Shown here is an 85-nucleotide sequence from Acipenser ruthenus, a member of the family "Small nucleolar RNA SNORD60". Its family is annotated with RNA processing and nucleolus in the Gene Ontology. A search with the family's covariance model found it, with a score of 78 bits. A reference for the family is Kiss-Laszlo et al. (1996), "Site-specific ribose methylation of preribosomal RNA: a novel function for small nucleolar RNAs", Cell. Taxonomically the source falls in Acipenser (Eukaryota, Euteleostomi, Acipenseridae, Acipenserinae).

RNA sequence: AGCCGAUGAUGAUUUUGACUUAUUUCUGACACCUCGUAUGAGUGCUGCUAAUGCAGUACUUGAUUACACUUUUAUUCUGAGGCUU
Numbered sequence: 001a002g003c004c005g006a007u008g009a010u011g012a013u014u015u016u017g018a019c020u021u022a023u024u025u026c027u028g029a030c031a032c033c034u035c036g037u038a039u040g041a042g043u044g045c046u047g048c049u050a051a052u053g054c055a056g057u058a059c060u061u062g063a064u065u066a067c068a069c070u071u072u073u074a075u076u077c078u079g080a081g082g083c084u085u
Stems, first nucleotide, its partner, number of pairs: 001084004044057005